[Rfam]
RNA: 6S / SsrS RNA
Organism: Candidatus Zymogenus saltonus
RNA sequence: UGCCCCCUGCGAUGUACGUGAUGGAGGAGUUAAUUUUGAGCCAACGCUAAAAAACAGGGAGCCGUCCCUUGCCGCGGUGUGUAUGCCUUCCUAUUAGGUGGGAAACCUUAAGCGGCAAUAUGGCGCCCACCUGCGAUAUGCAGGUUCAAAUGAGACCAACACACGGCACCCGGCGGGGGGCAU
Numbered sequence: 001u002g003c004c005c006c007c008u009g010c011g012a013u014g015u016a017c018g019u020g021a022u023g024g025a026g027g028a029g030u031u032a033a034u035u036u037u038g039a040g041c042c043a044a045c046g047c048u049a050a051a052a053a054a055c056a057g058g059g060a061g062c063c064g065u066c067c068c069u070u071g072c073c074g075c076g077g078u079g080u081g082u083a084u085g086c087c088u089u090c091c092u093a094u095u096a097g098g099u100g101g102g103a104a105a106c107c108u109u110a111a112g113c114g115g116c117a118a119u120a121u122g123g124c125g126c127c128c129a130c131c132u133g134c135g136a137u138a139u140g141c142a143g144g145u146u147c148a149a150a151u152g153a154g155a156c157c158a159a160c161a162c163a164c165g166g167c168a169c170c171c172g173g174c175g176g177g178g179g180g181c182a183u
Stems, first nucleotide, its partner, number of pairs: 002181009013168003017165003034150001037148006057128003061124005069118007081106002086102003090098001